Shown here is a 119-nucleotide sequence from Streptococcus ovuberis, a member of the family "Streptococcus sRNA SpR19".
[Rfam]
RNA sequence: GCACCUCCAGCGAGUUCGGGAUAGUGGAAGCCGAAUGGUUAACAAAACAAUUGGCGCUUUCUAUUCACAAUUUGAUAACCAAUCAAGUCAUAAAUUAGGGUGGAACCGCGUCUUGCACG
Numbered sequence: 001g002c003a004c005c006u007c008c009a010g011c012g013a014g015u016u017c018g019g020g021a022u023a024g025u026g027g028a029a030g031c032c033g034a035a036u037g038g039u040u041a042a043c044a045a046a047a048c049a050a051u052u053g054g055c056g057c058u059u060u061c062u063a064u065u066c067a068c069a070a071u072u073u074g075a076u077a078a079c080c081a082a083u084c085a086a087g088u089c090a091u092a093a094a095u096u097a098g099g100g101u102g103g104a105a106c107c108g109c110g111u112c113u114u115g116c117a118c119g
Stems, first nucleotide, its partner, number of pairs: 001106001004103002006100002014068002019062003023058004029052002036045001071087005
On this family, see Mann et al., PLoS Pathog 2012: "Control of virulence by small RNAs in Streptococcus pneumoniae".